[Rfam]
RNA: FMN riboswitch aptamer (RFN element)
Organism: Nocardioides baekrokdamisoli
RNA sequence: UCGCGUGCUCUGGGGGCGGUGAAAGUCCGCACCGGCGGUGACAGUCCGCGACCCGCGAGCCUCCUUGGAGGCGGACGGUUGACCAGGUGGAAAUCCUGGACCGACGGUUAAAGUCCGGAUGAGAAGCGCACGCGC
Numbered sequence: 001u002c003g004c005g006u007g008c009u010c011u012g013g014g015g016g017c018g019g020u021g022a023a024a025g026u027c028c029g030c031a032c033c034g035g036c037g038g039u040g041a042c043a044g045u046c047c048g049c050g051a052c053c054c055g056c057g058a059g060c061c062u063c064c065u066u067g068g069a070g071g072c073g074g075a076c077g078g079u080u081g082a083c084c085a086g087g088u089g090g091a092a093a094u095c096c097u098g099g100a101c102c103g104a105c106g107g108u109u110a111a112a113g114u115c116c117g118g119a120u121g122a123g124a125a126g127c128g129c130a131c132g133c134g135c
Stems, first nucleotide, its partner, number of pairs: 003133006010126001017029003031114002033103002035049004044101002053078002083099005105117003
Dot-bracket structure: ..((((((.(......(((.......))).[[((((((.....[[))))...((......................))....(((((.......)))))]])).(((.....]])))........).))))))..